[Rfam]
RNA sequence: CCUACAUGUCGCGCGGUCAUUGGGGAGUAGCCGCCCUUCCUGAGAGGGGUCCGCGUCAACAGACUUGGAGGCCGCAAGGCCGCCAUGGCGCGGACGGCACGCCGAUAUCGGCAGCUUGGCGAGACCUUUGGCGCUGGACUCCGACACCCGGGCCGGGCGGCGGAGGCUGGUGCCAUCGGAUCUUGCGCUGCUC
Numbered sequence: 001c002c003u004a005c006a007u008g009u010c011g012c013g014c015g016g017u018c019a020u021u022g023g024g025g026a027g028u029a030g031c032c033g034c035c036c037u038u039c040c041u042g043a044g045a046g047g048g049g050u051c052c053g054c055g056u057c058a059a060c061a062g063a064c065u066u067g068g069a070g071g072c073c074g075c076a077a078g079g080c081c082g083c084c085a086u087g088g089c090g091c092g093g094a095c096g097g098c099a100c101g102c103c104g105a106u107a108u109c110g111g112c113a114g115c116u117u118g119g120c121g122a123g124a125c126c127u128u129u130g131g132c133g134c135u136g137g138a139c140u141c142c143g144a145c146a147c148c149c150g151g152g153c154c155g156g157g158c159g160g161c162g163g164a165g166g167c168u169g170g171u172g173c174c175a176u177c178g179g180a181u182c183u184u185g186c187g188c189u190g191c192u193c
Stems, first nucleotide, its partner, number of pairs: 035047003049095010066085003070081004096192003100187003
About this RNA
Rfam assigns this 193-nucleotide RNA from Vineibacter terrae to the family "Manganese Mn2+ riboswitch aptamer (yybP-ykoY)". Its family is annotated with manganese ion binding in the Gene Ontology. Rfam describes the family as follows. This RNA was originally discovered in E. coli during a large scale screen and was named SraF. The family was later found to exist upstream of related families of protein genes in many bacteria, including the the yybP and ykoK genes in B. subtilis. The specific functions of these proteins are unknown, but this structured RNA element may be involved in their genetic regulation as a riboswitch. Lineage of the source: Bacteria > Pseudomonadati > Pseudomonadota > Hyphomicrobiales > Vineibacter. It scores 64 bits against the family's covariance model.